[Rfam]
RNA: Ribosomal protein L20 leader
RNA sequence: ACAUGAAAGCAGAGGCAACCCGCUUCUCGCCUUAGUAAAAUUAUUUUGCUGGGCAUGAUAUCGAGUAAGAACCUGUUCAACUAGGUUCUUUAAUGGUGGCGGGUGCAUUGCGUACCCGCCACUUUUCUGCUUU
Numbered sequence: 001a002c003a004u005g006a007a008a009g010c011a012g013a014g015g016c017a018a019c020c021c022g023c024u025u026c027u028c029g030c031c032u033u034a035g036u037a038a039a040a041u042u043a044u045u046u047u048g049c050u051g052g053g054c055a056u057g058a059u060a061u062c063g064a065g066u067a068a069g070a071a072c073c074u075g076u077u078c079a080a081c082u083a084g085g086u087u088c089u090u091u092a093a094u095g096g097u098g099g100c101g102g103g104u105g106c107a108u109u110g111c112g113u114a115c116c117c118g119c120c121a122c123u124u125u126u127c128u129g130c131u132u133u
Base pairs, nucleotide, nucleotide: 011027012026013025014024015023016022029054030053031052035049036048037047038045039044098120099119100118101117102116103115104114105113106112